RNA sequence: CGGCUGUAAUGGUCAACCGGAAAGGAAGAUCCCCAGUUCCCGUUCCGCUUUCCCCCUCUUUCCCAUUCCAGAAAGUUCAAGGUGCCCAGUUCGAACCCGGCGGUGGGCAAUAACUCACUUGGGCAACCAGUGAAGAUUGUUGCCUUUAAGCAAUGAAAACGACGCUUGAGGGAAGUGAUUCUGCAGAGGCGUUUUCACCGCUGCGGUGGCGGUGCUGGAUUACACCUGCUUUCUUUGAGGGAGGAGGUGGUUUGGGUGGUGUGGUCGACCUUUCAUUU
Dot-bracket structure: .(((.......))).....((((((..((((.(.(.(..(((..((((((((.(((((..............(((....(((((.((((((((.(((((((((..((((((((.(((((.((....)))))))...)))))))).(...)...(((((((....(((....(((....)))....)))..))))))))))))).)))..))).)))))....))))).....))).))))).))))))))..)))..).)).))))..))))))....

The family of this 278-nucleotide RNA from Heterodermia speciosa is "Fungal signal recognition particle RNA". The organism belongs to Heterodermia, within Eukaryota. Its family is annotated with signal recognition particle, plasma membrane targeting, SRP-dependent cotranslational protein targeting to membrane, signal sequence recognition and signal recognition particle, endoplasmic reticulum targeting in the Gene Ontology. The match comes from Rfam's covariance-model search (149 bits). Clan: SRP clan.